[Rfam]
A member of the RNA family "mir-1426 microRNA precursor family" from Panurus biarmicus, 89 nucleotides long. The base pairs follow the family's consensus structure, which was predicted with RNAalifold.

RNA sequence: GCAGAGUUGAUCCUUUUUCCUUAACUCAUGCCGCUGUGCCUUUUUAUUUAUUUCACAAUUGUGUGAGUUGAGUACAGAGUGUCACUCCA
Numbered sequence: 001g002c003a004g005a006g007u008u009g010a011u012c013c014u015u016u017u018u019c020c021u022u023a024a025c026u027c028a029u030g031c032c033g034c035u036g037u038g039c040c041u042u043u044u045u046a047u048u049u050a051u052u053u054c055a056c057a058a059u060u061g062u063g064u065g066a067g068u069u070g071a072g073u074a075c076a077g078a079g080u081g082u083c084a085c086u087c088c089a
Base pairs, nucleotide, nucleotide: 004087005086006085008084009083010082011081013079014078020072021071022070023069024068025067026066027065028064029063035057036056037055038054
Description: The match comes from Rfam's covariance-model search (79 bits).